[Rfam]
The family of this 92-nucleotide sequence from Prunus avium is "MIR6288 microRNA precursor family". A search with the family's covariance model found it, with a score of 98 bits. Rfam links the family to the GO terms RISC complex and miRNA-mediated post-transcriptional gene silencing. The organism belongs to Prunus, within Eukaryota.
RNA sequence: UCAAAACUAGCCACUUGUUAUUUUCUAAUUGGUUCUUAGUGUGUUAGAAUUUUCUGAGAACCAAUUAGAAAAUAAUAAGUAGCUAGUUUUUG
Number, nucleotide and partner (000 for none) at each position: 001u000002c000003a090004a089005a088006a087007c086008u085009a084010g083011c082012c000013a080014c079015u078016u077017g076018u075019u074020a073021u072022u071023u070024u069025c068026u067027a066028a065029u064030u063031g062032g061033u060034u059035c058036u057037u056038a055039g054040u000041g000042u000043g000044u000045u000046a000047g000048a000049a000050u000051u000052u000053u000054c039055u038056g037057a036058g035059a034060a033061c032062c031063a030064a029065u028066u027067a026068g025069a024070a023071a022072a021073u020074a019075a018076u017077a016078a015079g014080u013081a000082g011083c010084u009085a008086g007087u006088u005089u004090u003091u000092g000